[Rfam]
RNA sequence: UCAAUAGUGCAUGGGCUUAACGCGUAUCAGUGAGGAUUCGUCCGAGAUCGUGUUUUUGCUAGUUGAAAACUAUCACAUGACCGCUUCAGUUGGUCUCCGGAUCGGCUGGGAAUCUUUGGAAAAAAAUAUGUCUG
Numbered sequence: 001u002c003a004a005u006a007g008u009g010c011a012u013g014g015g016c017u018u019a020a021c022g023c024g025u026a027u028c029a030g031u032g033a034g035g036a037u038u039c040g041u042c043c044g045a046g047a048u049c050g051u052g053u054u055u056u057u058g059c060u061a062g063u064u065g066a067a068a069a070c071u072a073u074c075a076c077a078u079g080a081c082c083g084c085u086u087c088a089g090u091u092g093g094u095c096u097c098c099g100g101a102u103c104g105g106c107u108g109g110g111a112a113u114c115u116u117u118g119g120a121a122a123a124a125a126a127u128a129u130g131u132c133u134g
Stems, first nucleotide, its partner, number of pairs: 020053005026048003034043003085110011124133001126131001
Shown here is a 134-nucleotide RNA from Dothideomycetidae sp. 11243, a member of the family "U4 spliceosomal RNA". It scores 87 bits against the family's covariance model. Taxonomically the source falls in Dothideomycetidae (Eukaryota, Fungi, saccharomyceta, Pezizomycotina). It is annotated as a spliceosomal small nuclear RNA. U4 small nuclear RNA (U4 snRNA) is a component of the major U2-dependent spliceosome. The base pairs follow the family's consensus structure, which is taken from published work.